[Rfam]
A member of the RNA family "ASpks TB sRNA" from Nocardia cerradoensis, 69 nucleotides long. A search with the family's covariance model found it, with a score of 60 bits. It is annotated as an antisense RNA. Pairs were carried over by alignment from the consensus structure, which is taken from published work.
RNA sequence: CUUCAGGGAUCCGAUCCGCAACGGUUCCCCGCGGUCGUGUCCGUAGGCGGCGAUCAACGCCUGCGCCUC
Dot-bracket structure: .............(.((.....)).).(.(.((...((..(((....)))..))...))...).)....